[Rfam]
RNA sequence: UACAAGUGGAGUCUUGAAACACUUUAAAAACAGGGCGGCACUGAAAAGCCAUACGAGUAGGGUAAUC
Numbered sequence: 001u002a003c004a005a006g007u008g009g010a011g012u013c014u015u016g017a018a019a020c021a022c023u024u025u026a027a028a029a030a031c032a033g034g035g036c037g038g039c040a041c042u043g044a045a046a047a048g049c050c051a052u053a054c055g056a057g058u059a060g061g062g063u064a065a066u067c
Stems, first nucleotide, its partner, number of pairs: 006022003034050003041061002

DUF805 RNA: a 67-nucleotide sequence from Labilibaculum filiforme. The family has 46 seed sequences and 281 matches in Rfam 15.1.